Rfam assigns this 138-nucleotide RNA from Sinocyclocheilus rhinocerous to the family "Small nucleolar RNA SNORA14". Lineage of the source: Eukaryota > Metazoa > Osteoglossocephalai > Clupeocephala > Sinocyclocheilus. Rfam's curators write: ACA14 is a member of the H/ACA class of snoRNA that guide the sites of modification of uridines to pseudouridines. The family's consensus secondary structure was predicted with RNAfold.
[Rfam]
RNA sequence: UUCCAUUGUCCUCAUUUGGAAGUCGCUUUGGAUAAAAGCGUCUGCUAAAGGACUAAAUGUAAAUGUAAUGUAAAUGUACUUCAAAAUGUCAUGUCUAAUUCAUUGUUACUUGUCUUUUUUUUGUGAAAUUUACUAGCA
Number, nucleotide and partner (000 for none) at each position: 001u000002u000003c000004c059005a058006u057007u000008g053009u052010c051011c050012u000013c000014a000015u000016u000017u047018g046019g045020a000021a043022g042023u000024c040025g039026c038027u000028u000029u000030g000031g000032a000033u000034a000035a000036a000037a000038g026039c025040g024041u000042c022043u021044g000045c019046u018047a017048a000049a000050g011051g010052a009053c008054u000055a000056a000057a006058u005059g004060u000061a000062a000063a000064u138065g137066u136067a000068a000069u000070g133071u132072a131073a130074a129075u128076g000077u000078a000079c000080u000081u000082c000083a000084a000085a117086a116087u000088g114089u000090c112091a111092u000093g109094u108095c000096u000097a000098a103099u000100u000101c000102a000103u098104u000105g000106u000107u000108a094109c093110u000111u091112g090113u000114c088115u000116u086117u085118u000119u000120u000121u000122u000123g000124u000125g000126a000127a000128a075129u074130u073131u072132a071133c070134u000135a000136g066137c065138a064